The record is a 147-nucleotide RNA sequence from Dendrobium catenatum, which matches "Small nucleolar RNA snoR136" in Rfam. The family has 8 seed sequences and 452 matches in Rfam 15.1. A search with the family's covariance model found it, with a score of 51 bits. The organism belongs to Dendrobium, within Eukaryota. Rfam classes the family as an H/ACA-box small nucleolar RNA. The base pairs follow the family's consensus structure, which was predicted with mfold.
RNA sequence: UGAGCUUUGCAGAAUUUAUUUUUAUUCCUAUGAUUGUUGCUAUUGUUUUUCUGUAGGAUUGAAUAGUGCGAAGCUAAAAAAUAGGCUCCCUUCGCUUUCCAGUACAGAUACUUCUUAGUCUGCAUUGGACGUUGGGGAGUAACAUUG
Numbered sequence: 001u002g003a004g005c006u007u008u009g010c011a012g013a014a015u016u017u018a019u020u021u022u023u024a025u026u027c028c029u030a031u032g033a034u035u036g037u038u039g040c041u042a043u044u045g046u047u048u049u050u051c052u053g054u055a056g057g058a059u060u061g062a063a064u065a066g067u068g069c070g071a072a073g074c075u076a077a078a079a080a081a082u083a084g085g086c087u088c089c090c091u092u093c094g095c096u097u098u099c100c101a102g103u104a105c106a107g108a109u110a111c112u113u114c115u116u117a118g119u120c121u122g123c124a125u126u127g128g129a130c131g132u133u134g135g136g137g138a139g140u141a142a143c144a145u146u147g
Stems, first nucleotide, its partner, number of pairs: 001078001003075003008070004016063002026058007036050001085140007093131002098129005107120003